The family of this 220-nucleotide RNA sequence from Mycetohabitans rhizoxinica is "Burkholderia sRNA Bp1_Cand871_SIPHT". On this family, see Khoo et al., BMC Genomics 2012: "Computational discovery and RT-PCR validation of novel Burkholderia conserved and Burkholderia pseudomallei unique sRNAs". It is annotated as a small RNA.
RNA sequence: CCCCCAAAAUGCUUCCAUUGGUUUCCAACACGGAUGCGGUCUACUGUGUCGUAUGAGCGGAUGCGACGCGUGAACACCGGUCGGCACUGCCGACGCUCUGCUGCGCAGGGACAUCUUUGUUGGCACCGCGUCAGACGCGGUAACACAAUGCCACCCAUGGUCUCCUCGCGCUAACCCCGUAGCGUGUGGUUUUUAGCGGGCUCCGAGCCCGCUUUUUUUU
Dot-bracket structure: ...(((............((((.((.((((.(((((.(((.(..(((((.((((......)))).)))))..)..)))..(((((...)))))..((((.......)))).))))).)))))).)))).....(......)................)))...((.(((((((......))))))).)).....((((((((...)))))))).......